[Rfam]
RNA: Small nucleolar RNA SNORA3/SNORA45 family
RNA sequence: AGCGAGGCUAGAGUCACGUCUGGGUAUCCGCCAGUUGCCCUGGCGUGCUAGAGCUCUCGUAGAAGAACAGAUCUCUGCCUAUUCAUUGGCUGUAGUCUCUCGUGGCCCAGCCAACCACCAGCUGAGAUACACCG
Numbered sequence: 001a002g003c004g005a006g007g008c009u010a011g012a013g014u015c016a017c018g019u020c021u022g023g024g025u026a027u028c029c030g031c032c033a034g035u036u037g038c039c040c041u042g043g044c045g046u047g048c049u050a051g052a053g054c055u056c057u058c059g060u061a062g063a064a065g066a067a068c069a070g071a072u073c074u075c076u077g078c079c080u081a082u083u084c085a086u087u088g089g090c091u092g093u094a095g096u097c098u099c100u101c102g103u104g105g106c107c108c109a110g111c112c113a114a115c116c117a118c119c120a121g122c123u124g125a126g127a128u129a130c131a132c133c134g
Stems, first nucleotide, its partner, number of pairs: 002060005007054003012049002015047006023039004073126003077122002086114004091109002096104001